[Rfam]
Shown here is an 85-nucleotide sequence from Paenibacillus endophyticus, a member of the family "c-di-GMP-I-GGC riboswitch aptamer". The base pairs follow the family's consensus structure, which is taken from published work. A search with the family's covariance model found it, with a score of 67 bits. Taxonomically the source falls in Paenibacillus (Bacteria, Bacillota, Bacilli, Caryophanales).
RNA sequence: UCUGAAAAUGGCAAACUUGCCGAAAGGCUAGGACGCAAAGUUAUGGGCCUAAAGCAUUUAUGCUAAGGUCGCCAGACCGCCGGAA
Dot-bracket structure: (.((......((...((.(((....))).))..[))...(((.((((((.................))).]))))))...))..)
Numbered sequence: 001u002c003u004g005a006a007a008a009u010g011g012c013a014a015a016c017u018u019g020c021c022g023a024a025a026g027g028c029u030a031g032g033a034c035g036c037a038a039a040g041u042u043a044u045g046g047g048c049c050u051a052a053a054g055c056a057u058u059u060a061u062g063c064u065a066a067g068g069u070c071g072c073c074a075g076a077c078c079g080c081c082g083g084a085a
Stems, first nucleotide, its partner, number of pairs: 001085001003082002011036002016031002019028003034071001040077003044074003047069003